The record is a 100-nucleotide sequence from Oleomonas cavernae, which matches "rpsB sRNA" in Rfam. It is annotated as a small RNA. A search with the family's covariance model found it, with a score of 41 bits. A reference for the family is Meyer et al. (2009), "Identification of candidate structured RNAs in the marine organism 'Candidatus Pelagibacter ubique'", BMC Genomics.
[Rfam]
RNA sequence: CUCACGUGGGUUUGCGGCUGCGGAUUGGUUCCGCCGUCGCUCCGGUGUCCGGAUUUCCGGACGACACCCACGGCGGCUAAACCGGAAAAGGUUAAGACUA
Number, nucleotide and partner (000 for none) at each position: 001c075002u000003c073004a000005c072006g071007u070008g069009g068010g067011u000012u066013u000014g000015c000016g000017g000018c000019u000020g000021c033022g032023g031024a000025u000026u000027g000028g000029u000030u000031c023032c022033g021034c000035c000036g000037u000038c000039g000040c000041u000042c000043c000044g000045g000046u000047g062048u061049c060050c059051g058052g057053a000054u000055u000056u000057c052058c051059g050060g049061a048062c047063g000064a000065c000066a012067c010068c009069c008070a007071c006072g005073g003074c000075g001076g000077c000078u000079a000080a000081a000082c000083c000084g000085g000086a000087a000088a000089a000090g000091g000092u000093u000094a000095a000096g000097a000098c000099u000100a000